[Rfam]
RNA: mir-399 microRNA precursor family
RNA sequence: AGCUGCAUUGCUGGGCAAGUCUCCUUUGGCAUUGGCUAGUUGUUUGAUCAGAACCACUGCCAAAGGAGACAUGCCCAGUAAAGCAUGC
Numbered sequence: 001a002g003c004u005g006c007a008u009u010g011c012u013g014g015g016c017a018a019g020u021c022u023c024c025u026u027u028g029g030c031a032u033u034g035g036c037u038a039g040u041u042g043u044u045u046g047a048u049c050a051g052a053a054c055c056a057c058u059g060c061c062a063a064a065g066g067a068g069a070c071a072u073g074c075c076c077a078g079u080a081a082a083g084c085a086u087g088c
Stems, first nucleotide, its partner, number of pairs: 005084002008081002011078007019070001021068004027062005033056003